[Rfam]
RNA sequence: UUCGCCAGCUGGGGGAGUUCAUUCGAACUGAGAUGAGCCGGGUGCUCAAACCCUUUGAACCUGAUCCGGUUAAUGCCGGCGUAGGGAAGCGGCGCCUCUUCCAA
Number, nucleotide and partner (000 for none) at each position: 001u000002u000003c000004g000005c000006c092007a000008g090009c089010u088011g054012g053013g052014g051015g000016a000017g028018u027019u026020c025021a000022u000023u000024c000025g020026a019027a018028c017029u000030g000031a000032g000033a000034u000035g047036a046037g045038c044039c000040g000041g000042g000043u000044g038045c037046u036047c035048a000049a000050a000051c014052c013053c012054u011055u000056u000057g000058a000059a000060c085061c084062u083063g082064a000065u000066c079067c078068g077069g076070u000071u000072a000073a000074u000075g000076c069077c068078g067079g066080c000081g000082u063083a062084g061085g060086g000087a000088a010089g009090c008091g000092g006093c000094g000095c000096c000097u000098c000099u000100u000101c000102c000103a000104a000
Notes:
Rfam assigns this 104-nucleotide sequence from Geobacter sp. DSM 9736 to the family "TPP riboswitch aptamer (THI element)". A search with the family's covariance model found it, with a score of 76 bits.